[Rfam]
RNA sequence: AUCGAUAAAGGCAAACCCUGAGCAAUCAGGGGACGCAAAGUAAAAGGUCUUUACUUACAGUACAAAGAUAGCCUUACUACCGAUA
Numbered sequence: 001a002u003c004g005a006u007a008a009a010g011g012c013a014a015a016c017c018c019u020g021a022g023c024a025a026u027c028a029g030g031g032g033a034c035g036c037a038a039a040g041u042a043a044a045a046g047g048u049c050u051u052u053a054c055u056u057a058c059a060g061u062a063c064a065a066a067g068a069u070a071g072c073c074u075u076a077c078u079a080c081c082g083a084u085a
Base pairs, nucleotide, nucleotide: 003082004081011036012035016031017030018029019028020027021026034071039078040077041076042075044074046072047069048068049067050066051065052064
The record is an 85-nucleotide RNA from Candidatus Kuenenia stuttgartensis, which matches "c-di-GMP-I-GGC riboswitch aptamer" in Rfam. It scores 63 bits against the family's covariance model. Its Rfam clan is "c-di-GMP_I riboswitch clan". The organism belongs to Candidatus Kuenenia, within Bacteria. Its family is annotated with cyclic-di-GMP binding in the Gene Ontology. A reference for the family is Smith et al. (2009), "Structural basis of ligand binding by a c-di-GMP riboswitch", Nat Struct Mol Biol.